RNA sequence: GAAGCAAGCCAGACAGCCGCUGGCCGUCGUUUAUGCGAUGGCGGGAGGAAGGUCCGGACUCCAUAGAGCGGGGUGACGGUUAACGGCCGUCCGCUGAAAGUCGGUGCAAGCCGGUAUAAGGCGAGGAAUAGGGCCACAGAGACGAGCGUAUUAAGUUACGGUGAAACGCGGUAACCUCCACCCGGAGCAAUUUCAAAUAGGCACGCAUUGAUGCUGCUCGCGGAGCGUGCGGGUAGAAAGCUUGAGCGCUGGAGCAAUCCCGCGCCUAGAGGAAUGGCUGUCAUAACGGGUAACCGUCGUAACAGAAUCCGGCCUAUCGGCUUGCUUCACUU
Numbered sequence: 001g002a003a004g005c006a007a008g009c010c011a012g013a014c015a016g017c018c019g020c021u022g023g024c025c026g027u028c029g030u031u032u033a034u035g036c037g038a039u040g041g042c043g044g045g046a047g048g049a050a051g052g053u054c055c056g057g058a059c060u061c062c063a064u065a066g067a068g069c070g071g072g073g074u075g076a077c078g079g080u081u082a083a084c085g086g087c088c089g090u091c092c093g094c095u096g097a098a099a100g101u102c103g104g105u106g107c108a109a110g111c112c113g114g115u116a117u118a119a120g121g122c123g124a125g126g127a128a129u130a131g132g133g134c135c136a137c138a139g140a141g142a143c144g145a146g147c148g149u150a151u152u153a154a155g156u157u158a159c160g161g162u163g164a165a166a167c168g169c170g171g172u173a174a175c176c177u178c179c180a181c182c183c184g185g186a187g188c189a190a191u192u193u194c195a196a197a198u199a200g201g202c203a204c205g206c207a208u209u210g211a212u213g214c215u216g217c218u219c220g221c222g223g224a225g226c227g228u229g230c231g232g233g234u235a236g237a238a239a240g241c242u243u244g245a246g247c248g249c250u251g252g253a254g255c256a257a258u259c260c261c262g263c264g265c266c267u268a269g270a271g272g273a274a275u276g277g278c279u280g281u282c283a284u285a286a287c288g289g290g291u292a293a294c295c296g297u298c299g300u301a302a303c304a305g306a307a308u309c310c311g312g313c314c315u316a317u318c319g320g321c322u323u324g325c326u327u328c329a330c331u332u
Base pairs, nucleotide, nucleotide: 001328002327003326004325005324006323007322008321009320010319011317012282013281014280015279016278017277018276020045021044023042024041025040026039027038028037050315051314052313054312055311056310057309058308059187060186061185062184066219067218068217069216071183072182073181074180075179076090077089078088079087080086091125092123093122094121095120126178127177131176132175133172134171135170147160148159149158150157191239192238193237194236201230202229203228204227205226206225212222213221214220246265247264248263249262251260252259253258